[Rfam]
RNA sequence: GAUCAGUGAUUAAAAUAGCCAAAUUUGAGUAUCAGAAGACCUACUAGUCUCCCUGAUUGAUCUCUGUAUUUCUGAGA
Numbered sequence: 001g002a003u004c005a006g007u008g009a010u011u012a013a014a015a016u017a018g019c020c021a022a023a024u025u026u027g028a029g030u031a032u033c034a035g036a037a038g039a040c041c042u043a044c045u046a047g048u049c050u051c052c053c054u055g056a057u058u059g060a061u062c063u064c065u066g067u068a069u070u071u072c073u074g075a076g077a
Stems, first nucleotide, its partner, number of pairs: 031057003037050004
The record is a 77-nucleotide sequence from Neogale vison, which matches "Small nucleolar RNA U2-19" in Rfam.
A reference for the family is Tycowski et al. (2004), "Guide RNAs with 5' Caps and Novel Box C/D snoRNA-like Domains for Modification of snRNAs in Metazoa", Curr Biol.
By type it is a C/D-box small nucleolar RNA.
Taxonomically the source falls in Neogale (Eukaryota, Bilateria, Dipnotetrapodomorpha, Boreoeutheria).
Rfam links the family to the GO terms nucleolus and RNA processing.
The family's consensus secondary structure is taken from published work.